[Rfam]
This 118-nucleotide sequence from Streptomyces lonarensis belongs to the Rfam family "SAM (S-adenosyl methionine) riboswitch aptamer". The organism belongs to Streptomyces, within Bacteria.
RNA sequence: GGUCACGAGUGACAGCGAAGAAGGCCCCGGCCGGCUGUCCGGCAACCCUCCACCGUGGCGGGGUGCCCCGGGUGAUGACCAGGUCGUGAACAGCACCGGUUCACGGCAAGCACGGUCG
Numbered sequence: 001g002g003u004c005a006c007g008a009g010u011g012a013c014a015g016c017g018a019a020g021a022a023g024g025c026c027c028c029g030g031c032c033g034g035c036u037g038u039c040c041g042g043c044a045a046c047c048c049u050c051c052a053c054c055g056u057g058g059c060g061g062g063g064u065g066c067c068c069c070g071g072g073u074g075a076u077g078a079c080c081a082g083g084u085c086g087u088g089a090a091c092a093g094c095a096c097c098g099g100u101u102c103a104c105g106g107c108a109a110g111c112a113c114g115g116u117c118g
Stems, first nucleotide, its partner, number of pairs: 001080004009040001011039006023032002041067003046063003050058002083107009
Source information: A search with the family's covariance model found it, with a score of 103 bits. Pairs were carried over by alignment from the consensus structure, which is taken from published work. Rfam links the family to the GO terms regulation of gene expression and S-adenosylmethionine metabolic process.